The family of this 127-nucleotide RNA sequence from Otolemur garnettii is "Small nucleolar RNA ACA64". Rfam links the family to the GO terms RNA processing and nucleolus. The literature on the family includes a 2006 paper in RNA by Schattner et al., "A computational screen for mammalian pseudouridylation guide H/ACA RNAs".
[Rfam]
RNA sequence: GUUGGUUGAAAAUCACCCCUGGCUUUGGUUGUAGCCAGGAGUGAGAUGCAGUGCCCAGAGCCAGCAGGGACCUCAGUUCAUGGCCCACUGCAUCAUGGGCAGGGGUGAAACCCAGGCCCCAACAGGU
Numbered sequence: 001g002u003u004g005g006u007u008g009a010a011a012a013u014c015a016c017c018c019c020u021g022g023c024u025u026u027g028g029u030u031g032u033a034g035c036c037a038g039g040a041g042u043g044a045g046a047u048g049c050a051g052u053g054c055c056c057a058g059a060g061c062c063a064g065c066a067g068g069g070a071c072c073u074c075a076g077u078u079c080a081u082g083g084c085c086c087a088c089u090g091c092a093u094c095a096u097g098g099g100c101a102g103g104g105g106u107g108a109a110a111c112c113c114a115g116g117c118c119c120c121a122a123c124a125g126g127u
Stems, first nucleotide, its partner, number of pairs: 005052004010047001013044004021036004067120001069118001071116003078108004086099001088097001